Shown here is a 54-nucleotide RNA sequence from Cavenderia fasciculata, a member of the family "Class I RNA from Dictyostelium".
Pairs were carried over by alignment from the consensus structure, which is taken from published work.
Rfam classes the family as a non-coding RNA gene.
From the family's description: Dictyostelium Class I RNA was first reported for Aspegren et al. 2004 in Dictyostelium discoideum. Sucgang et al. 2011 identify putative homologs of Class I RNA in D. discoideum and D. purpureum. Avesson et al. 2011 report that Class I RNA present a down regulation during the development of social amoeba Dictyostelium discoideum, they also found that deletion of one of the Class I RNAs, DdR-21, results in aberrant development.
The source organism's lineage runs through Eukaryota, Amoebozoa, Evosea, Eumycetozoa and Cavenderia.

RNA sequence: GAUCCCUUCCUACAAUUCAAAACUAUAAUAUCAAAGAAACCCCCCAGGGAUCUG
Numbered sequence: 001g002a003u004c005c006c007u008u009c010c011u012a013c014a015a016u017u018c019a020a021a022a023c024u025a026u027a028a029u030a031u032c033a034a035a036g037a038a039a040c041c042c043c044c045c046a047g048g049g050a051u052c053u054g
Base pairs, nucleotide, nucleotide: 001052002051003050004048005047